[Rfam]
Nucleotides: 124
Base pairs, nucleotide, nucleotide: 007039008038009037010036011035012034013033014032015031016030043075044074045073046072047071048070049069050068051067052066088119089118090117091116092115093114094113095112096111097110098109
Number, partner (000 for none) and nucleotide at each position: 001000u002000a003000u004000u005000g006000u007039a008038g009037g010036u011035g012034u013033c014032c015031u016030c017000g018000c019000u020000c021000c022000u023000c024000c025000u026000c027000c028000c029000a030016g031015a032014g033013g034012g035011c036010a037009c038008u039007u040000g041000c042000g043075g044074a045073a046072u047071g048070g049069c050068a051067a052066c053000a054000c055000u056000c057000c058000u059000c060000c061000u062000c063000c064000c065000a066052g067051u068050u069049g070048c071047c072046g073045u074044u075043c076000g077000g078000u079000u080000c081000u082000a083000u084000u085000c086000g087000a088119a089118a090117g091116c092115c093114u094113g095112c096111c097110g098109c099000a100000c101000c102000u103000c104000c105000u106000c107000c108000c109098g110097c111096g112095g113094c114093a115092g116091g117090c118089u119088u120000u121000u122000u123000c124000g
Shown here is a 124-nucleotide RNA sequence from Pararhizobium polonicum, a member of the family "Alphaproteobacterial ar14".
About the family: Smr14C2 was renamed NfeR1 (Nodule Formation Efficiency RNA) highly expressed in salt stress and during the symbiotic interaction on legume roots.
Lineage of the source: Bacteria > Pseudomonadati > Pseudomonadota > Hyphomicrobiales > Pararhizobium.